RNA sequence: GCAACCUCAGGCUCGCGCACGAGAACGUGGCCGUCUUCCGCUCGCUGCUGGGCAUCUCGUGGAUGUGGUUCUUCGGCGCGGUGUUCCUCGCGCAAUUCCCGUCGUUCGCGAAGGAGGUGCUG
Numbered sequence: 001g002c003a004a005c006c007u008c009a010g011g012c013u014c015g016c017g018c019a020c021g022a023g024a025a026c027g028u029g030g031c032c033g034u035c036u037u038c039c040g041c042u043c044g045c046u047g048c049u050g051g052g053c054a055u056c057u058c059g060u061g062g063a064u065g066u067g068g069u070u071c072u073u074c075g076g077c078g079c080g081g082u083g084u085u086c087c088u089c090g091c092g093c094a095a096u097u098c099c100c101g102u103c104g105u106u107c108g109c110g111a112a113g114g115a116g117g118u119g120c121u122g
Stems, first nucleotide, its partner, number of pairs: 010049003014044002017041002021037004026033001051121005057115002060112001063105003067099002072094001074092002078088001080087002
RNA: Burkholderia RNA 11